[Rfam]
A member of the RNA family "SAM riboswitch aptamer (S box leader)" from Candidatus Viridilinea mediisalina, 105 nucleotides long. NCBI's taxonomy places the organism under Bacteria, Chloroflexales, Chloroflexineae, Oscillochloridaceae, Candidatus Viridilinea. The match comes from Rfam's covariance-model search (84 bits).
RNA sequence: CGCUUAUCCAGAGAGACCGAGGGACCGGCCCGAUGACGUCUCGGCAACCUUUAGGGGCUUCCCUGAAACGGUGCCAAUUCCGACAGCGACACUGGAAGAUGAGCG
Numbered sequence: 001c002g003c004u005u006a007u008c009c010a011g012a013g014a015g016a017c018c019g020a021g022g023g024a025c026c027g028g029c030c031c032g033a034u035g036a037c038g039u040c041u042c043g044g045c046a047a048c049c050u051u052u053a054g055g056g057g058c059u060u061c062c063c064u065g066a067a068a069c070g071g072u073g074c075c076a077a078u079u080c081c082g083a084c085a086g087c088g089a090c091a092c093u094g095g096a097a098g099a100u101g102a103g104c105g
Stems, first nucleotide, its partner, number of pairs: 001105008013042005021031003026082003043075004048071002050067004079097001084094003